[Rfam]
RNA sequence: GCCCAGUUGAGCCCCGGGGUGUAGGCUUCUAACCUACAACUGAUUAACGUCAGAAUGGUUCAACUCCAUCUACUGGGC
Numbered sequence: 001g002c003c004c005a006g007u008u009g010a011g012c013c014c015c016g017g018g019g020u021g022u023a024g025g026c027u028u029c030u031a032a033c034c035u036a037c038a039a040c041u042g043a044u045u046a047a048c049g050u051c052a053g054a055a056u057g058g059u060u061c062a063a064c065u066c067c068a069u070c071u072a073c074u075g076g077g078c
Base pairs, nucleotide, nucleotide: 001078002077003076004075005074006073007072009070012019013018020038021037022036023035024034025033040053041052042051043050044049055069056068057067058066
This 78-nucleotide sequence from Homarus americanus belongs to the Rfam family "Selenocysteine transfer RNA". Lineage of the source: Eukaryota > Ecdysozoa > Decapoda > Nephropoidea > Homarus. It scores 52 bits against the family's covariance model. Rfam links the family to the GO term triplet codon-amino acid adaptor activity.